[Rfam]
RNA sequence: ACAGAAUUCCCAGGAGAAGGAAACUCCGGGAAAAUAGAAUAAACAAAUUAAGAUAGUCAUGGAACCGAACGAAUAUGUUUCAAU
Numbered sequence: 001a002c003a004g005a006a007u008u009c010c011c012a013g014g015a016g017a018a019g020g021a022a023a024c025u026c027c028g029g030g031a032a033a034a035u036a037g038a039a040u041a042a043a044c045a046a047a048u049u050a051a052g053a054u055a056g057u058c059a060u061g062g063a064a065c066c067g068a069a070c071g072a073a074u075a076u077g078u079u080u081c082a083a084u
Base pairs, nucleotide, nucleotide: 007032008031009030010029011028013027014026015025016024067080068079069078070077
RNA: Plastid-rpl20 3UTR RNA